[Rfam]
RNA: mir-15 microRNA precursor family
RNA sequence: UCAGGGGGCACUCUAGCAGCACAUCAUGUUUUGCAGAUUUCAUGCUGAAUCGCUCCAAAUCAUUUUGUGCUGCCACCGUGAGCCCUGG
Numbered sequence: 001u002c003a004g005g006g007g008g009c010a011c012u013c014u015a016g017c018a019g020c021a022c023a024u025c026a027u028g029u030u031u032u033g034c035a036g037a038u039u040u041c042a043u044g045c046u047g048a049a050u051c052g053c054u055c056c057a058a059a060u061c062a063u064u065u066u067g068u069g070c071u072g073c074c075a076c077c078g079u080g081a082g083c084c085c086u087g088g
Stems, first nucleotide, its partner, number of pairs: 001088006014075001016073008026063003030059004035054002